Rfam assigns this 219-nucleotide sequence from Aquibacillus salsiterrae to the family "T-box leader". From the family's description: Uncharged tRNA acts as the effector for transcription antitermination of genes in the T-box leader family. The match comes from Rfam's covariance-model search (123 bits).

[Rfam]
RNA sequence: UGAACGUUGAUGAGAAAGAGAGUAGUUACUUUGGAAAGCAAAGCGAGUUAGGGUGUUGGUGGAAGCCUAAUCUUGAUAAAGUAAUGAACCGGACUUUCGGAAGCGCUAUUCUGAACGAAUAAGUAGGGAUAGCCGGUUGUGCACCGUUAACGGCACAAUGAGCUGGUUCUUAGGAGAACAAGUAGAGUGGCACCGCGGGAUUAAAAUCUCGUCUCUUAA
Numbered sequence: 001u002g003a004a005c006g007u008u009g010a011u012g013a014g015a016a017a018g019a020g021a022g023u024a025g026u027u028a029c030u031u032u033g034g035a036a037a038g039c040a041a042a043g044c045g046a047g048u049u050a051g052g053g054u055g056u057u058g059g060u061g062g063a064a065g066c067c068u069a070a071u072c073u074u075g076a077u078a079a080a081g082u083a084a085u086g087a088a089c090c091g092g093a094c095u096u097u098c099g100g101a102a103g104c105g106c107u108a109u110u111c112u113g114a115a116c117g118a119a120u121a122a123g124u125a126g127g128g129a130u131a132g133c134c135g136g137u138u139g140u141g142c143a144c145c146g147u148u149a150a151c152g153g154c155a156c157a158a159u160g161a162g163c164u165g166g167u168u169c170u171u172a173g174g175a176g177a178a179c180a181a182g183u184a185g186a187g188u189g190g191c192a193c194c195g196c197g198g199g200a201u202u203a204a205a206a207u208c209u210c211g212u213c214u215c216u217u218a219a
Base pairs, nucleotide, nucleotide: 007103008102015097016096017095018094025085026084027083028082029081030080036074037073038072047071048070049069050068051067052066106132107131108130109129110128111127112126134146135145136144166179167178168177169176170175184216185215186214187213195212196211197210198209199208